[Rfam]
RNA sequence: UAUGUCGCAUUGGGCCGAGCUUGGACAAGCAUAAAAUAUGUUAAUAUCACGCUUAGGCCCGGUCCAGACCUG
Numbered sequence: 001u002a003u004g005u006c007g008c009a010u011u012g013g014g015c016c017g018a019g020c021u022u023g024g025a026c027a028a029g030c031a032u033a034a035a036a037u038a039u040g041u042u043a044a045u046a047u048c049a050c051g052c053u054u055a056g057g058c059c060c061g062g063u064c065c066a067g068a069c070c071u072g
Base pairs, nucleotide, nucleotide: 004069005068006067007065009063010062011061012060013059014058015057016056017054018053019052020051024048025047028042029041030040031039032038033037

A member of the RNA family "MIR8757 microRNA precursor family" from Gossypium raimondii, 72 nucleotides long. Its family is annotated with RISC complex and miRNA-mediated post-transcriptional gene silencing in the Gene Ontology. The organism belongs to Gossypium, within Eukaryota. It is one of the family's seed sequences.